[Rfam]
RNA: Histidine operon leader
RNA sequence: UCAUCAUCACCAUCACCCUGACUAGUCUUUCAGGCGAUGAGUGCUGGAAGACGUUCUAAUCUUCCAGCGGCGCAGAAUGUCAGAGAGAGCCCUCGGAAGAUAUCUUCCGAGGGUUUUUUUUU
Number, nucleotide and partner (000 for none) at each position: 001u000002c000003a000004u000005c000006a000007u000008c043009a042010c041011c039012a038013u037014c036015a000016c000017c034018c033019u032020g031021a030022c000023u000024a000025g000026u000027c000028u000029u000030u021031c020032a019033g018034g017035c000036g014037a013038u012039g011040a000041g010042u009043g008044c067045u066046g065047g064048a063049a062050g061051a060052c000053g000054u000055u000056c000057u000058a000059a000060u051061c050062u049063u048064c047065c046066a045067g044068c000069g000070g000071c000072g000073c000074a000075g000076a000077a000078u000079g000080u000081c000082a000083g000084a119085g118086a117087g116088a115089g114090c113091c112092c111093u110094c109095g108096g107097a106098a105099g104100a000101u000102a000103u000104c099105u098106u097107c096108c095109g094110a093111g092112g091113g090114u089115u088116u087117u086118u085119u084120u000121u000122u000